[Rfam]
RNA sequence: GAACUUAGAGGUUGAAAAGUAUCCGUCUCCAACGCGGCAUCUUGUCCAAGAUGUGUCGAGAAAUGCGGGCGACAUUCGGCGGUCCCGCCUAAGUUA
Numbered sequence: 001g002a003a004c005u006u007a008g009a010g011g012u013u014g015a016a017a018a019g020u021a022u023c024c025g026u027c028u029c030c031a032a033c034g035c036g037g038c039a040u041c042u043u044g045u046c047c048a049a050g051a052u053g054u055g056u057c058g059a060g061a062a063a064u065g066c067g068g069g070c071g072a073c074a075u076u077c078g079g080c081g082g083u084c085c086c087g088c089c090u091a092a093g094u095u096a
Stems, first nucleotide, its partner, number of pairs: 002095007011033004023082005035060001037054007065088005
RNA: skipping-rope RNA